Annotation
This 98-nucleotide RNA from Hemibagrus wyckioides belongs to the Rfam family "Small nucleolar RNA SNORD16". The family is grouped with related families in Rfam's "SNORD16 clan". The source organism's lineage runs through Eukaryota, Metazoa, Gnathostomata, Siluriformes and Hemibagrus. The family's RNA type in Rfam is C/D-box small nucleolar RNA.
RNA sequence: UGCUGUGAUGGUGUAAUUUGCGUCCUACUCUGCGCAUAGCGACAGUUGCCUGCUGUCACAUGCUAGCGCUGAAGGUUGACGAAAAUUUAAUCUGAGCU
Numbered sequence: 001u002g003c004u005g006u007g008a009u010g011g012u013g014u015a016a017u018u019u020g021c022g023u024c025c026u027a028c029u030c031u032g033c034g035c036a037u038a039g040c041g042a043c044a045g046u047u048g049c050c051u052g053c054u055g056u057c058a059c060a061u062g063c064u065a066g067c068g069c070u071g072a073a074g075g076u077u078g079a080c081g082a083a084a085a086u087u088u089a090a091u092c093u094g095a096g097c098u
Stems, first nucleotide, its partner, number of pairs: 002097002021081004030071001032069003039063002041057005